Rfam assigns this 82-nucleotide RNA from Diachasma alloeum to the family "mir-263 microRNA precursor family". The source organism's lineage runs through Eukaryota, Metazoa, Neoptera, Endopterygota and Diachasma. The family is grouped with related families in Rfam's "mir-182 clan". The family's consensus secondary structure was predicted with RNAalifold. The family has 52 seed sequences and 368 matches in Rfam 15.1. On this family, see Li et al., BMC Genomics 2009: "Direct sequencing and expression analysis of a large number of miRNAs in Aedes aegypti and a multi-species survey of novel mosquito miRNAs".
[Rfam]
RNA sequence: UGUUGGUGGGUCUUGGCACUGGAAGAAUUCACAGAUGUGUAAAGUACAAUCGUGGAUCUUACAAUGCCAUCACUCGCCGCGC
Number, nucleotide and partner (000 for none) at each position: 001u000002g000003u000004u079005g078006g077007u076008g075009g074010g073011u000012c000013u000014u069015g068016g067017c066018a065019c000020u063021g062022g000023a059024a000025g058026a057027a000028u000029u055030c054031a053032c052033a000034g050035a000036u000037g000038u000039g000040u000041a000042a000043a000044g000045u000046a000047c000048a000049a000050u034051c000052g032053u031054g030055g029056a000057u026058c025059u023060u000061a000062c021063a020064a000065u018066g017067c016068c015069a014070u000071c000072a000073c010074u009075c008076g007077c006078c005079g004080c000081g000082c000